[Rfam]
Shown here is a 79-nucleotide sequence, a member of the family "skipping-rope RNA".
The family's RNA type in Rfam is small RNA.
The base pairs follow the family's consensus structure, which is taken from published work.
RNA sequence: AUCAUCUGAGGUCGGAACAGGCAACCGACACACCCAAGCGGUCUUUAAAGAGAUGCAGGAGUGCCAACCUGCCUAUGAU
Numbered sequence: 001a002u003c004a005u006c007u008g009a010g011g012u013c014g015g016a017a018c019a020g021g022c023a024a025c026c027g028a029c030a031c032a033c034c035c036a037a038g039c040g041g042u043c044u045u046u047a048a049a050g051a052g053a054u055g056c057a058g059g060a061g062u063g064c065c066a067a068c069c070u071g072c073c074u075a076u077g078a079u
Base pairs, nucleotide, nucleotide: 001079002078003077004076005075008073011029012028013027014026015025020065021064022063023062031050032042033041034040055072056071057070058069059068
Dot-bracket structure: (((((..(..(((((....[[[[.))))).((((.....))).......)....(((((..]]]]..)))))).)))))